RNA: Clostridiales-2 RNA
Organism: Emergencia timonensis
RNA sequence: CAAAAAAGGGGUGUGCAGAGGGGAUUCCCCUCGCCGCCUUCAGGAGGGUGCUCAGCCUGCAUAGCAGGCGCCGAAGGGAAC
Numbered sequence: 001c002a003a004a005a006a007a008g009g010g011g012u013g014u015g016c017a018g019a020g021g022g023g024a025u026u027c028c029c030c031u032c033g034c035c036g037c038c039u040u041c042a043g044g045a046g047g048g049u050g051c052u053c054a055g056c057c058u059g060c061a062u063a064g065c066a067g068g069c070g071c072c073g074a075a076g077g078g079a080a081c
Stems, first nucleotide, its partner, number of pairs: 015034002018032005055069005